[Rfam]
This 89-nucleotide RNA from Protea cynaroides belongs to the Rfam family "Small nucleolar RNA Z103". NCBI's taxonomy places the organism under Eukaryota, Viridiplantae, Streptophytina, Mesangiospermae, Protea. Rfam classes the family as a C/D-box small nucleolar RNA. The literature on the family includes a 2003 paper in Nucleic Acids Res by Chen et al., "The high diversity of snoRNAs in plants: identification and comparative study of 120 snoRNA genes from Oryza sativa". The base pairs follow the family's consensus structure, which was predicted with PFOLD.

Nucleotides: 089
Stems, first nucleotide, its partner, number of pairs: 001089001003087003
Number, partner (000 for none) and nucleotide at each position: 001089a002000a003087g004086g005085a006000a007000g008000u009000g010000a011000u012000g013000a014000u015000u016000c017000u018000u019000u020000c021000c022000c023000a024000a025000c026000u027000g028000c029000u030000c031000g032000a033000c034000u035000u036000u037000g038000a039000u040000g041000a042000u043000a044000u045000u046000g047000u048000g049000u050000u051000u052000u053000u054000u055000a056000u057000a058000u059000g060000g061000a062000a063000u064000a065000u066000a067000u068000c069000c070000a071000a072000g073000c074000a075000a076000g077000g078000a079000a080000u081000c082000u083000g084000a085005u086004c087003u088000a089001u